[Rfam]
RNA sequence: AGCGAAGCCGUCGCUAUAUAAGGGAAAAUCAUUUAAAGAUAGUGAAUGACUGCGGUAUUACUAGCCGACGCAAUAAAUUAGUAGGGAUUAUACCAGCGUACCUAUUUCAAGCUAUAUAACCCCUAAAGGGUAGAAGAUGUAGCGACGCCCAUUCCGCUUAGCGAUGAAAUAGCGGAUAAAUCAGCUACGACGGGUAUGGUUUAAUCGCUAGAUUUCGAUUCUAGCAGCUGCGAAAGUGGCGGGAUUAUAUAGACGUAUCAGCAAUGAUACGAUACGUAGGGCAUGGAUUAAGACGCGUAAUAAUAUAUACGAUAGUAGAAUAUCGGCUAUAAAUA
Number, nucleotide and partner (000 for none) at each position: 001a015002g014003c013004g012005a011006a000007g000008c000009c000010g000011u005012c004013g003014c002015u001016a000017u000018a000019u000020a000021a000022g000023g000024g000025a000026a000027a000028a000029u049030c048031a047032u046033u000034u000035a000036a000037a000038g000039a000040u000041a000042g000043u000044g000045a000046a032047u031048g030049a029050c000051u000052g000053c067054g066055g065056u064057a000058u000059u000060a000061c000062u000063a000064g056065c055066c054067g053068a000069c000070g000071c000072a000073a000074u000075a000076a000077a000078u000079u000080a000081g000082u000083a000084g123085g122086g121087a000088u119089u118090a117091u116092a115093c000094c000095a113096g112097c111098g000099u000100a000101c000102c000103u000104a000105u000106u000107u000108c000109a000110a000111g097112c096113u095114a000115u092116a091117u090118a089119a088120c000121c086122c085123c084124u000125a000126a000127a000128g000129g000130g000131u000132a000133g000134a000135a000136g000137a000138u189139g188140u187141a186142g185143c184144g000145a000146c000147g000148c000149c000150c000151a177152u176153u000154c175155c174156g173157c172158u000159u000160a000161g000162c000163g000164a000165u000166g000167a000168a000169a000170u000171a000172g157173c156174g155175g154176a152177u151178a000179a000180a000181u000182c000183a000184g143185c142186u141187a140188c139189g138190a000191c000192g000193g000194g000195u000196a000197u000198g000199g000200u000201u000202u000203a000204a000205u000206c000207g000208c224209u223210a222211g221212a220213u000214u000215u000216c000217g000218a000219u000220u212221c211222u210223a209224g208225c000226a000227g240228c239229u238230g237231c236232g000233a000234a000235a000236g231237u230238g229239g228240c227241g000242g000243g000244a000245u000246u000247a000248u000249a000250u000251a000252g000253a000254c271255g270256u269257a268258u267259c266260a265261g000262c000263a000264a000265u260266g259267a258268u257269a256270c255271g254272a000273u299274a298275c297276g296277u295278a000279g000280g000281g000282c000283a000284u000285g000286g000287a000288u000289u000290a000291a000292g000293a000294c000295g277296c276297g275298u274299a273300a000301u000302a000303a000304u000305a000306u000307a000308u000309a000310c325311g324312a323313u322314a321315g000316u000317a000318g000319a000320a000321u314322a313323u312324c311325g310326g000327c000328u000329a000330u000331a000332a000333a000334u000335a000

Overview:
The record is a 335-nucleotide RNA sequence, which matches "throat-1 RNA" in Rfam. It is one of the family's seed sequences. It is annotated as a small RNA.